[Rfam]
RNA: azaaromatic riboswitch aptamer (yjdF RNA)
Organism: Clostridioides difficile
RNA sequence: AUCUAUAAAGAUAAAAACACAGUCUGGUUGGUAGUCCAGACGCAGCAAUAGCUGUCAGUAACCUGCCUCCUUGGUUGUCCGUUCUUUAGAAAGUAAUU
Numbered sequence: 001a002u003c004u005a006u007a008a009a010g011a012u013a014a015a016a017a018c019a020c021a022g023u024c025u026g027g028u029u030g031g032u033a034g035u036c037c038a039g040a041c042g043c044a045g046c047a048a049u050a051g052c053u054g055u056c057a058g059u060a061a062c063c064u065g066c067c068u069c070c071u072u073g074g075u076u077g078u079c080c081g082u083u084c085u086u087u088a089g090a091a092a093g094u095a096a097u098u
Stems, first nucleotide, its partner, number of pairs: 004090001006088006022041006042055005065075003